The record is a 181-nucleotide sequence from Salarias fasciatus, which matches "Small nucleolar RNA SNORA81" in Rfam. A search with the family's covariance model found it, with a score of 86 bits.

RNA sequence: UCCUUCUGCCUUAACAGAAGUCUGCUAUAAUUGCAUGAUCCAGAUCUCCUGUUUCAUGUAAUAAUGCUAGCAGAGUCCUACGCAGAAGAAGAUUAUUGUGCACUGCAGCUGAAACUGAGACGUGGUCGAACCUCUUUCUUAAUGUUCGUUGGCCGUCGUCUCGAGGUUGGGUGCAACAGUU
Numbered sequence: 001u002c003c004u005u006c007u008g009c010c011u012u013a014a015c016a017g018a019a020g021u022c023u024g025c026u027a028u029a030a031u032u033g034c035a036u037g038a039u040c041c042a043g044a045u046c047u048c049c050u051g052u053u054u055c056a057u058g059u060a061a062u063a064a065u066g067c068u069a070g071c072a073g074a075g076u077c078c079u080a081c082g083c084a085g086a087a088g089a090a091g092a093u094u095a096u097u098g099u100g101c102a103c104u105g106c107a108g109c110u111g112a113a114a115c116u117g118a119g120a121c122g123u124g125g126u127c128g129a130a131c132c133u134c135u136u137u138c139u140u141a142a143u144g145u146u147c148g149u150u151g152g153c154c155g156u157c158g159u160c161u162c163g164a165g166g167u168u169g170g171g172u173g174c175a176a177c178a179g180u181u
Stems, first nucleotide, its partner, number of pairs: 021074001023072005030065004036056002041051003099175006107167001123152001125150001127148004
NCBI's taxonomy places the organism under Eukaryota, Opisthokonta, Deuterostomia, Gnathostomata, Salarias.
The family's RNA type in Rfam is H/ACA-box small nucleolar RNA.
Gene Ontology terms of the family: nucleolus and RNA processing.
On this family, see Gu et al., Nucleic Acids Res 2005: "A novel experimental approach for systematic identification of box H/ACA snoRNAs from eukaryotes".